[Rfam]
The family of this 68-nucleotide sequence from Mycobacterium heidelbergense is "ASdes TB sRNA". By type it is a small RNA. The family has 26 seed sequences and 1,192 matches in Rfam 15.1.
RNA sequence: AGUUCGACCGGGUCGAUCGCGCGGGUCACCACCAGGUAGUCGCGCAGCGCGAUCCCAUGCCGGUUCUC
Numbered sequence: 001a002g003u004u005c006g007a008c009c010g011g012g013u014c015g016a017u018c019g020c021g022c023g024g025g026u027c028a029c030c031a032c033c034a035g036g037u038a039g040u041c042g043c044g045c046a047g048c049g050c051g052a053u054c055c056c057a058u059g060c061c062g063g064u065u066c067u068c
Stems, first nucleotide, its partner, number of pairs: 004063003008059001011030003015027004035056002038053001040052005
The source organism's lineage runs through Bacteria, Mycobacteriales, Mycobacteriaceae, Mycobacterium and Mycobacterium simiae complex.